[Rfam]
RNA sequence: GAGGGUGCGAUGAUUGGAACAAUUCCUCGUUCCAGAAGGCAAUAGCUCUAAGCGUUGCCAUGGUGAGGACAAUCUUUACAUACACCCAUAGAAUAUGAGCACU
Numbered sequence: 001g002a003g004g005g006u007g008c009g010a011u012g013a014u015u016g017g018a019a020c021a022a023u024u025c026c027u028c029g030u031u032c033c034a035g036a037a038g039g040c041a042a043u044a045g046c047u048c049u050a051a052g053c054g055u056u057g058c059c060a061u062g063g064u065g066a067g068g069a070c071a072a073u074c075u076u077u078a079c080a081u082a083c084a085c086c087c088a089u090a091g092a093a094u095a096u097g098a099g100c101a102c103u
Base pairs, nucleotide, nucleotide: 003103004102006101007100

Shown here is a 103-nucleotide sequence from Adiantum capillus-veneris, a member of the family "Small nucleolar RNA snoR8a". Lineage of the source: Eukaryota > Embryophyta > Tracheophyta > Polypodiales > Adiantum. A reference for the family is Brown et al. (2001), "Multiple snoRNA gene clusters from Arabidopsis", RNA. Pairs were carried over by alignment from the consensus structure, which was predicted with WAR. Its family is annotated with RNA processing and nucleolus in the Gene Ontology.